The record is a 35-nucleotide RNA from Bos taurus, which matches "Iron response element I" in Rfam. Rfam classes the family as a cis-regulatory element. A reference for the family is Hentze et al. (1987), "Identification of the iron-responsive element for the translational regulation of human ferritin mRNA", Science. NCBI's taxonomy places the organism under Eukaryota, Metazoa, Mammalia, Artiodactyla, Bos. Gene Ontology term of the family: response to iron ion.
RNA sequence: UUGUCUCUUGCUUCAGCAGUGCUUGGAUGGAACAG
Numbered sequence: 001u002u003g004u005c006u007c008u009u010g011c012u013u014c015a016g017c018a019g020u021g022c023u024u025g026g027a028u029g030g031a032a033c034a035g
Stems, first nucleotide, its partner, number of pairs: 001035004006031003010028001012027005017021001